Shown here is a 98-nucleotide RNA sequence, a member of the family "wcaG RNA".
Rfam classes the family as a cis-regulatory element.
It is one of the family's seed sequences.
RNA sequence: AUGAGUUUACUGCCUCUCUCAAGGGCAGUUGGUGCGGAUGGGACUCUCUCCCGCCUGGUUUCCAAUUUCCAGUCAAAGAAUUGGUGGCGAGCCUGAGU
Numbered sequence: 001a002u003g004a005g006u007u008u009a010c011u012g013c014c015u016c017u018c019u020c021a022a023g024g025g026c027a028g029u030u031g032g033u034g035c036g037g038a039u040g041g042g043a044c045u046c047u048c049u050c051c052c053g054c055c056u057g058g059u060u061u062c063c064a065a066u067u068u069c070c071a072g073u074c075a076a077a078g079a080a081u082u083g084g085u086g087g088c089g090a091g092c093c094u095g096a097g098u
Stems, first nucleotide, its partner, number of pairs: 009029007039053005055072004062084006